[Rfam]
RNA sequence: CCACACAUGCGUCUUAUGGCUUUCUAUUCCUAUGUGAGUUUUUUCUAACAUGUCAUGUAGGGUUUAAAGCCAUUGGAUACACAGUGGA
Numbered sequence: 001c002c003a004c005a006c007a008u009g010c011g012u013c014u015u016a017u018g019g020c021u022u023u024c025u026a027u028u029c030c031u032a033u034g035u036g037a038g039u040u041u042u043u044u045c046u047a048a049c050a051u052g053u054c055a056u057g058u059a060g061g062g063u064u065u066a067a068a069g070c071c072a073u074u075g076g077a078u079a080c081a082c083a084g085u086g087g088a
Stems, first nucleotide, its partner, number of pairs: 001087004008081002011078004016073008026064001028062010
Rfam assigns this 88-nucleotide sequence from Amphiprion percula to the family "mir-135 microRNA precursor family".
A search with the family's covariance model found it, with a score of 67 bits.
Rfam 15.1 lists 2,125 matches to the family in 647 species.
Its family is annotated with RISC complex and gene silencing by miRNA in the Gene Ontology.
The family's consensus secondary structure was predicted with PFOLD.
For this family Rfam cites "Identification of many microRNAs that copurify with polyribosomes in mammalian neurons" (Kim et al., Proc Natl Acad Sci U S A, 2004).